Rfam assigns this 137-nucleotide sequence from Sphaeramia orbicularis to the family "Small nucleolar RNA SNORA15". The base pairs follow the family's consensus structure, which was predicted with RNAfold. Rfam's curators write: ACA15 is a member of the H/ACA class of snoRNA that guide the sites of modification of uridines to pseudouridines. It scores 50 bits against the family's covariance model. Its family is annotated with RNA processing and nucleolus in the Gene Ontology.
[Rfam]
RNA sequence: GCAUGGAUGAAUUCUGUUCCAGCUGAUCUGUGGUGGAUACAGUCAGACACCAUGCUAAAGCAUCAUCUCAUUUCUUCUAAAUGUCUGGAUGAGUGUCACCCUCAUACUCACCCACUUCUAUAAGAAUGCGUACAGUG
Number, nucleotide and partner (000 for none) at each position: 001g055002c054003a053004u052005g051006g050007a000008u000009g000010a000011a000012u000013u000014c042015u041016g040017u039018u000019c000020c000021a000022g000023c000024u000025g000026a000027u000028c000029u000030g000031u000032g000033g000034u000035g000036g000037a000038u000039a017040c016041a015042g014043u000044c000045a000046g000047a000048c000049a000050c006051c005052a004053u003054g002055c001056u000057a000058a000059a000060g000061c000062a000063u000064c000065a000066u000067c000068u000069c130070a000071u128072u126073u125074c124075u123076u122077c000078u120079a000080a000081a000082u000083g000084u000085c000086u114087g113088g112089a000090u110091g109092a108093g107094u106095g105096u000097c000098a000099c000100c000101c000102u000103c000104a000105u095106a094107c093108u092109c091110a090111c000112c088113c087114a086115c000116u000117u000118c000119u000120a078121u000122a076123a075124g074125a073126a072127u000128g071129c000130g069131u000132a000133c000134a000135g000136u000137g000